Rfam assigns this 187-nucleotide RNA from Thermosynechococcus vestitus to the family "6S / SsrS RNA". By type it is a non-coding RNA gene. Rfam describes the family as follows. E. coli 6S RNA was the first non coding RNA to be sequenced, but its function was unknown until recently. It consists of 184 nucleotides that fold into an extended hairpin structure with a large single-stranded internal bulge. Taxonomically the source falls in Thermosynechococcus vestitus (Bacteria, Bacillati, Cyanobacteriota, Cyanophyceae). Pairs were carried over by alignment from the consensus structure, which is taken from published work.

[Rfam]
RNA sequence: GUUUAGCUGCGACGUUGGUGACUGCCAAUAUUGUUUUGUGAUCUACACUUGCAAAACAUUUGGGAAUCAAUACUGUGGGCGGCAGUAAACUGGUCUUUGAGCCAGAAACUUCUAAGUCUGCAGUUAGUAUUCCCCCCUAGUUUUUACUAGGUCAUAAACUGAGGUAAAACGGCGUCGCGGUUAGACU
Number, nucleotide and partner (000 for none) at each position: 001g000002u185003u184004u183005a182006g181007c180008u179009g178010c177011g176012a175013c174014g173015u172016u000017g000018g170019u169020g000021a000022c000023u000024g000025c000026c000027a000028a000029u000030a000031u000032u000033g000034u000035u158036u157037u156038g000039u154040g153041a152042u151043c150044u149045a000046c000047a000048c000049u000050u000051g000052c000053a000054a000055a000056a000057c000058a000059u000060u000061u000062g134063g133064g132065a000066a130067u129068c000069a000070a000071u000072a000073c000074u122075g121076u120077g119078g118079g117080c116081g000082g000083c000084a000085g109086u108087a000088a000089a000090c105091u104092g103093g102094u101095c000096u000097u000098u000099g000100a000101g094102c093103c092104a091105g090106a000107a000108a086109c085110u000111u000112c000113u000114a000115a000116g080117u079118c078119u077120g076121c075122a074123g000124u000125u000126a000127g000128u000129a067130u066131u000132c064133c063134c062135c000136c000137c000138u000139a000140g000141u000142u000143u000144u000145u000146a000147c000148u000149a044150g043151g042152u041153c040154a039155u000156a037157a036158a035159c000160u000161g000162a000163g000164g000165u000166a000167a000168a000169a019170c018171g000172g015173c014174g013175u012176c011177g010178c009179g008180g007181u006182u005183a004184g003185a002186c000187u000